This 48-nucleotide RNA from Streptomyces viridochromogenes belongs to the Rfam family "L31-Actinobacteria ribosomal protein leader".
Rfam classes the family as a cis-regulatory leader.
RNA sequence: UCGGCCCCGGUUCACGCUUGCCGCAACCCGCGACGGCGACCCGGAGCC
Number, nucleotide and partner (000 for none) at each position: 001u000002c000003g048004g047005c046006c000007c044008c043009g042010g041011u000012u000013c000014a000015c038016g037017c036018u035019u000020g034021c000022c032023g031024c000025a000026a000027c000028c000029c000030g000031c023032g022033a000034c020035g018036g017037c016038g015039a000040c000041c010042c009043g008044g007045a000046g005047c004048c003